[Rfam]
RNA sequence: AUUUAAUAUAAUUGUAGAUGUCAACUCAGUGAAAAAUUGGAUACCACCAAUCUGAGAAUCUGUUUAUAAAUACAGUGGAUUAUUUAUAGAGGAUACCCUAUAAAUAGUUUGAACGGUUGCUAAUGUGAAUUAGUGAUUGUGGUUACGAAAGUAACUCUGGAUAGCAGAUGUACCGACACCUAUUCGAUUUAAACCGCUGUCUUGUCGGCAGGGCAAUAGACGCUCCAGUGGAGAAUAACCCAGAUAAGGCUUUGACUGGUAAUCAAAGCAGUCUCUAAAGUAAAUAUUUCUAUCAGAGGAUAGGAAUAUUUUGGGAAUACCAAUAACCUGUUCAGCAAUGAAAAUCCUGAAUAAAAGGGAUAUAUAAGGCAAGGUCAAGGCACAAGUAGCUCAAUGCUAAGACGAACAUGCAAAAAAUAAUAAUUCAAGAGGUGAAUUAAUUUUAUUUUGAUAUUCUGAAUGGUGAGUGAAAGUUAGAGGUAAUCAAUCCUCUCAUAGAAUGGUAAAUAAUUAGUUUUCAGUAAUGAAAAUCAAUUAUUUACUGGGGUAAGAAGCUAAGAGGUCGCUCCUUUUGGUUCAGACUUAUCUCCUAUGUGGGUGAAAAAAGUAGGGUAGUAACAGUUGGCAAGGCGAAGGUCUGAUAUCUAUGAUUAUAUUAA
Numbered sequence: 001a002u003u004u005a006a007u008a009u010a011a012u013u014g015u016a017g018a019u020g021u022c023a024a025c026u027c028a029g030u031g032a033a034a035a036a037u038u039g040g041a042u043a044c045c046a047c048c049a050a051u052c053u054g055a056g057a058a059u060c061u062g063u064u065u066a067u068a069a070a071u072a073c074a075g076u077g078g079a080u081u082a083u084u085u086a087u088a089g090a091g092g093a094u095a096c097c098c099u100a101u102a103a104a105u106a107g108u109u110u111g112a113a114c115g116g117u118u119g120c121u122a123a124u125g126u127g128a129a130u131u132a133g134u135g136a137u138u139g140u141g142g143u144u145a146c147g148a149a150a151g152u153a154a155c156u157c158u159g160g161a162u163a164g165c166a167g168a169u170g171u172a173c174c175g176a177c178a179c180c181u182a183u184u185c186g187a188u189u190u191a192a193a194c195c196g197c198u199g200u201c202u203u204g205u206c207g208g209c210a211g212g213g214c215a216a217u218a219g220a221c222g223c224u225c226c227a228g229u230g231g232a233g234a235a236u237a238a239c240c241c242a243g244a245u246a247a248g249g250c251u252u253u254g255a256c257u258g259g260u261a262a263u264c265a266a267a268g269c270a271g272u273c274u275c276u277a278a279a280g281u282a283a284a285u286a287u288u289u290c291u292a293u294c295a296g297a298g299g300a301u302a303g304g305a306a307u308a309u310u311u312u313g314g315g316a317a318u319a320c321c322a323a324u325a326a327c328c329u330g331u332u333c334a335g336c337a338a339u340g341a342a343a344a345u346c347c348u349g350a351a352u353a354a355a356a357g358g359g360a361u362a363u364a365u366a367a368g369g370c371a372a373g374g375u376c377a378a379g380g381c382a383c384a385a386g387u388a389g390c391u392c393a394a395u396g397c398u399a400a401g402a403c404g405a406a407c408a409u410g411c412a413a414a415a416a417a418u419a420a421u422a423a424u425u426c427a428a429g430a431g432g433u434g435a436a437u438u439a440a441u442u443u444u445a446u447u448u449u450g451a452u453a454u455u456c457u458g459a460a461u462g463g464u465g466a467g468u469g470a471a472a473g474u475u476a477g478a479g480g481u482a483a484u485c486a487a488u489c490c491u492c493u494c495a496u497a498g499a500a501u502g503g504u505a506a507a508u509a510a511u512u513a514g515u516u517u518u519c520a521g522u523a524a525u526g527a528a529a530a531u532c533a534a535u536u537a538u539u540u541a542c543u544g545g546g547g548u549a550a551g552a553a554g555c556u557a558a559g560a561g562g563u564c565g566c567u568c569c570u571u572u573u574g575g576u577u578c579a580g581a582c583u584u585a586u587c588u589c590c591u592a593u594g595u596g597g598g599u600g601a602a603a604a605a606a607g608u609a610g611g612g613u614a615g616u617a618a619c620a621g622u623u624g625g626c627a628a629g630g631c632g633a634a635g636g637u638c639u640g641a642u643a644u645c646u647a648u649g650a651u652u653a654u655a656u657u658a659a
Stems, first nucleotide, its partner, number of pairs: 011652001013650001017646001025056005036051005058169006075114002077110003081106005088099002091096001115138010142155005180640001181615001184612002189607002195598001197379002199375008207332006223233004239315006249269004254264002257322004334398004344361005383473001389468005455581004477493001479491002495593003498542001544590004550584002554577001556574007628639004
RNA: ROOL RNA